[Rfam]
RNA sequence: UGCUCACUGGUUCGAGAACCUCCCAGUAUAAAAAACUAAGGCACA
Numbered sequence: 001u002g003c004u005c006a007c008u009g010g011u012u013c014g015a016g017a018a019c020c021u022c023c024c025a026g027u028a029u030a031a032a033a034a035a036c037u038a039a040g041g042c043a044c045a
Stems, first nucleotide, its partner, number of pairs: 006027005016037001
The record is a 45-nucleotide RNA sequence from Epulopiscium sp. Nele67-Bin005, which matches "PreQ1 (pre queuosine) riboswitch aptamer" in Rfam.
From the family's description: This family is a bacterial riboswitch that binds to the metabolite preQ1, an intermediate in the biosynthesis of the modified nucleoside queuosine from GTP. One example of this riboswitch is located in the leader of the Bacillus subtilis ykvJKLM (queCDEF) operon which encodes four genes necessary for queuosine production. PreQ1 binding to the riboswitch aptamer is thought to induce premature transcription termination within the leader to down-regulate expression of these genes.
Rfam links the family to the GO term queuosine biosynthetic process.
A search with the family's covariance model found it, with a score of 46 bits.
Rfam 15.1 lists 873 matches to the family in 692 species.